A member of the RNA family "mir-10 microRNA precursor family" from Pelusios castaneus, 75 nucleotides long. The family's consensus secondary structure was predicted with PFOLD. A search with the family's covariance model found it, with a score of 57 bits.
[Rfam]
RNA sequence: CUAUAUGGACCCUGUAGAAUCGAAUUUGUGUGAGCAUUUGAGAGUCACAAAUUCGUCUCUAGGGGAGUAUAUGGA
Numbered sequence: 001c002u003a004u005a006u007g008g009a010c011c012c013u014g015u016a017g018a019a020u021c022g023a024a025u026u027u028g029u030g031u032g033a034g035c036a037u038u039u040g041a042g043a044g045u046c047a048c049a050a051a052u053u054c055g056u057c058u059c060u061a062g063g064g065g066a067g068u069a070u071a072u073g074g075a
Stems, first nucleotide, its partner, number of pairs: 002073006010065003016060003021055010